This 271-nucleotide RNA from Dendryphion nanum belongs to the Rfam family "A. fumigatus sRNA Afu_309". The family has 10 seed sequences and 663 matches in Rfam 15.1. Rfam classes the family as a small RNA. The base pairs follow the family's consensus structure, which was predicted with WAR.
[Rfam]
RNA sequence: UCCUUUACAACAACGACUUGUGUCGCGCUGUCCCUUCUUCGUGAUGGUUGAUGGCGCGGCAGUUCGUCCGAUCUAUGGAGCCAUCAAAUCUCAUGAUGUCAAUUUCCGGUCGACAGGUCGAAGAGUAACAUGGUGCGUUCUCUCAAACUUGAGUUCACCUUCGGGUUCGAGCUCGGUGGAGGAGACGUUCCUGGGCGACUGAUUCCAAAUCCUCUUUACUGACGGCCGUCGGCUCGUGAAGUUGGGGGCAAACCCAGUCUAGCCUACAUUC
Numbered sequence: 001u002c003c004u005u006u007a008c009a010a011c012a013a014c015g016a017c018u019u020g021u022g023u024c025g026c027g028c029u030g031u032c033c034c035u036u037c038u039u040c041g042u043g044a045u046g047g048u049u050g051a052u053g054g055c056g057c058g059g060c061a062g063u064u065c066g067u068c069c070g071a072u073c074u075a076u077g078g079a080g081c082c083a084u085c086a087a088a089u090c091u092c093a094u095g096a097u098g099u100c101a102a103u104u105u106c107c108g109g110u111c112g113a114c115a116g117g118u119c120g121a122a123g124a125g126u127a128a129c130a131u132g133g134u135g136c137g138u139u140c141u142c143u144c145a146a147a148c149u150u151g152a153g154u155u156c157a158c159c160u161u162c163g164g165g166u167u168c169g170a171g172c173u174c175g176g177u178g179g180a181g182g183a184g185a186c187g188u189u190c191c192u193g194g195g196c197g198a199c200u201g202a203u204u205c206c207a208a209a210u211c212c213u214c215u216u217u218a219c220u221g222a223c224g225g226c227c228g229u230c231g232g233c234u235c236g237u238g239a240a241g242u243u244g245g246g247g248g249c250a251a252a253c254c255c256a257g258u259c260u261a262g263c264c265u266a267c268a269u270u271c
Base pairs, nucleotide, nucleotide: 014120015119016118017117018116019115020114021113022060023059024058025057026056027055029053030052031051032050033047034046036044037043069112070111071110072109073108076101077100078099080097082095132189133188134187146177148175151174152173153172154171155170156169158165159164194264195263196262197259198258199257200256201255211248212247213246214245215244218242219241220240224234225233226232227231